[Rfam]
RNA sequence: ACCUGCUGCGGACGGAGCGAGGUGUCCGCAGCACCAGACAGAACACCGUGCCACGGGAACAUCGGGGCACUUCAGGGCGUU
Numbered sequence: 001a002c003c004u005g006c007u008g009c010g011g012a013c014g015g016a017g018c019g020a021g022g023u024g025u026c027c028g029c030a031g032c033a034c035c036a037g038a039c040a041g042a043a044c045a046c047c048g049u050g051c052c053a054c055g056g057g058a059a060c061a062u063c064g065g066g067g068c069a070c071u072u073c074a075g076g077g078c079g080u081u
Base pairs, nucleotide, nucleotide: 004033005032006031007030008029009028010027011026012025013024014023048070049069050068051067052066054064055063